Shown here is a 79-nucleotide RNA from Desulfuromonas acetoxidans, a member of the family "c-di-GMP-I-UAU riboswitch aptamer".
[Rfam]
RNA sequence: UCCGAUAAAGGCAAAACCGGAGUAAUCCGGUGACGCAAAGCCACGGGUCCUGUUUGACAGGAUCGCCGGGUUCCCGAAG
Numbered sequence: 001u002c003c004g005a006u007a008a009a010g011g012c013a014a015a016a017c018c019g020g021a022g023u024a025a026u027c028c029g030g031u032g033a034c035g036c037a038a039a040g041c042c043a044c045g046g047g048u049c050c051u052g053u054u055u056g057a058c059a060g061g062a063u064c065g066c067c068g069g070g071u072u073c074c075c076g077a078a079g
Base pairs, nucleotide, nucleotide: 011036012035016031017030018029019028020027021026039072040071041070042069044068045067046066047063048062049061050060051059052058053057
Its family is annotated with cyclic-di-GMP binding in the Gene Ontology. The organism belongs to Desulfuromonas acetoxidans, within Bacteria.